[Rfam]
RNA: Bacterial small signal recognition particle RNA
Organism: Chlamydia caviae
RNA sequence: GUUGGGGACCUUUUAAGAGAAGAGACCUACGAAUCGGGUCAGGACUGGAAGGUAGCAGCCCUAAGAAGUGUUUUCUUUUGCUAGAAGUGUUCUCCAACUUAC
Dot-bracket structure: ...(((((.((((((...((((((..((.(.....((((....(((....)))....))))...).))....))))))...))))))...))))).......